[Rfam]
The family of this 390-nucleotide part of an RNA from Cucumis melo is "Eukaryotic large subunit ribosomal RNA". A search with the family's covariance model found it, with a score of 2129 bits. The organism belongs to Cucumis melo subsp. agrestis, within Eukaryota. Gene Ontology terms of the family: structural constituent of ribosome and ribosome.
RNA sequence: GAUGGUGUCGCAAUAGUAAUUCAACCUAGUACGAGAGGAAUCGUUGAUUCGCACAAUUGGUCAUUGCGUUUGGUUGAAAAGCUAGUGGCGCGAAGCUACCGUGUGCUUGAUUACGAUUGAACGCCUCUAAGUCAGAAUCCAGGCUAGAAGUGACGCAUGCGCCUAUCACUCGAUUGUCAACCAGGUGUAGAGACCUUUCGACCCCCAAAGGCACGUGUCAUUGGUUAAGCCUUCAUGACGAAUGAGUCGCAGAGGCUGCCUUGUAAUGUAAUUCCCACCGAGUGAUUGGUAGAAUCUUUAAAAGACAACUUAAAUACCCAACAGGGUGUUAUAAGUGGCAAGUGGCCUUGCUGCCAUGAUUCACUGAGAUUCAACCCUUUGACCCUCCCA
Number, nucleotide and partner (000 for none) at each position: 001g000002a000003u000004g000005g156006u155007g154008u153009c152010g151011c150012a000013a000014u146015a145016g144017u143018a000019a049020u000021u047022c046023a045024a044025c043026c000027u000028a000029g000030u000031a000032c000033g000034a000035g000036a000037g000038g000039a000040a000041u000042c000043g025044u024045u023046g022047a021048u000049u019050c105051g104052c103053a102054c101055a000056a000057u000058u098059g097060g096061u000062c000063a000064u000065u092066g091067c090068g089069u088070u085071u084072g083073g082074u081075u080076g000077a000078a000079a000080a075081g074082c073083u072084a071085g070086u000087g000088g069089c068090g067091c066092g065093a000094a000095g000096c060097u059098a058099c000100c000101g054102u053103g052104u051105g050106c000107u141108u000109g139110a000111u000112u000113a000114c000115g133116a132117u131118u130119g000120a000121a000122c000123g000124c000125c000126u000127c000128u000129a000130a118131g117132u116133c115134a000135g000136a000137a000138u000139c109140c000141a107142g000143g017144c016145u015146a014147g000148a000149a000150g011151u010152g009153a008154c007155g006156c005157a000158u000159g000160c000161g000162c000163c288164u000165a286166u285167c284168a283169c282170u000171c000172g000173a000174u000175u000176g000177u000178c000179a000180a000181c000182c000183a000184g000185g000186u000187g000188u000189a000190g000191a000192g000193a000194c000195c000196u000197u000198u000199c000200g000201a000202c000203c000204c000205c000206c000207a000208a000209a000210g000211g000212c000213a000214c000215g000216u000217g000218u000219c000220a000221u000222u000223g000224g000225u000226u000227a000228a000229g000230c000231c000232u000233u000234c000235a000236u000237g000238a000239c000240g000241a000242a000243u000244g000245a000246g000247u000248c000249g000250c000251a000252g000253a000254g000255g000256c000257u000258g000259c000260c000261u000262u000263g000264u000265a000266a000267u000268g000269u000270a000271a000272u000273u000274c000275c000276c000277a000278c000279c000280g000281a000282g169283u168284g167285a166286u165287u000288g163289g000290u000291a000292g000293a000294a000295u390296c000297u313298u312299u000300a310301a000302a000303a000304g000305a000306c000307a000308a000309c000310u300311u000312a298313a297314a000315u000316a000317c000318c000319c000320a000321a000322c381323a380324g377325g376326g375327u000328g370329u369330u000331a000332u000333a000334a000335g364336u363337g362338g361339c000340a360341a000342g357343u356344g355345g354346c353347c000348u000349u000350g000351c000352u000353g346354c345355c344356a343357u342358g000359a000360u340361u338362c337363a336364c335365u000366g000367a000368g000369a329370u328371u000372c000373a000374a000375c326376c325377c324378u000379u000380u323381g322382a000383c000384c000385c000386u000387c000388c000389c000390a295